[Rfam]
RNA sequence: GUUCAUCAUACGCUUAAUCUCCCUGAUCGGGGAGAACGGGGGAACCAAUGCAGCCGAAAAGGAGCAAGCGGCACAUCGCGUUAGGAUGUCGCUUGAUGCCGGACAAGCUGUACUUUUCCAGGGGUGAAUUCGCCGGGACCAUGAGCAGGGUCCGGCCGCGAUAGGGCAGCUCUCUUGCCCGAACCCGUCAGCUAACCUCGUAAGCGCAUAUAAGAGAGAUC
Numbered sequence: 001g002u003u004c005a006u007c008a009u010a011c012g013c014u015u016a017a018u019c020u021c022c023c024u025g026a027u028c029g030g031g032g033a034g035a036a037c038g039g040g041g042g043a044a045c046c047a048a049u050g051c052a053g054c055c056g057a058a059a060a061g062g063a064g065c066a067a068g069c070g071g072c073a074c075a076u077c078g079c080g081u082u083a084g085g086a087u088g089u090c091g092c093u094u095g096a097u098g099c100c101g102g103a104c105a106a107g108c109u110g111u112a113c114u115u116u117u118c119c120a121g122g123g124g125u126g127a128a129u130u131c132g133c134c135g136g137g138a139c140c141a142u143g144a145g146c147a148g149g150g151u152c153c154g155g156c157c158g159c160g161a162u163a164g165g166g167c168a169g170c171u172c173u174c175u176u177g178c179c180c181g182a183a184c185c186c187g188u189c190a191g192c193u194a195a196c197c198u199c200g201u202a203a204g205c206g207c208a209u210a211u212a213a214g215a216g217a218g219a220u221c
Stems, first nucleotide, its partner, number of pairs: 011206004018035007036201006046121001122186003130161004164180004
RNA: c-di-AMP riboswitch aptamer (ydaO/yuaA leader)
Organism: Paenibacillus albicereus